[Rfam]
RNA sequence: UUGCAGGAUAAGUUACAGAGUAGCUGUUAAGUGCUACCCUGUCGUUCCCCCUGCAGAAAGAAAAAUCUGUUUCUUACUAUCCCUGUCUGUCUGCAUCCUACAGCUGUCAGGGACGCUUAGUUACAGACAC
Numbered sequence: 001u002u003g004c005a006g007g008a009u010a011a012g013u014u015a016c017a018g019a020g021u022a023g024c025u026g027u028u029a030a031g032u033g034c035u036a037c038c039c040u041g042u043c044g045u046u047c048c049c050c051c052u053g054c055a056g057a058a059a060g061a062a063a064a065a066u067c068u069g070u071u072u073c074u075u076a077c078u079a080u081c082c083c084u085g086u087c088u089g090u091c092u093g094c095a096u097c098c099u100a101c102a103g104c105u106g107u108c109a110g111g112g113a114c115g116c117u118u119a120g121u122u123a124c125a126g127a128c129a130c
Base pairs, nucleotide, nucleotide: 003054004053005052006051007050015042016041017040018039020037021036022035023034024033082111083110084109085108087106089104090103
The record is a 130-nucleotide RNA from Clupea harengus, which matches "Small nucleolar RNA SNORA63" in Rfam. E3 belongs to the H/ACA class of snoRNAs and is involved in the processing of eukaryotic pre-rRNA and has regions of complementarity to 18S rRNA. E3 is encoded in introns in the gene for protein synthesis initiation factor 4AII. The match comes from Rfam's covariance-model search (105 bits). Taxonomically the source falls in Clupea (Eukaryota, Eumetazoa, Bilateria, Gnathostomata).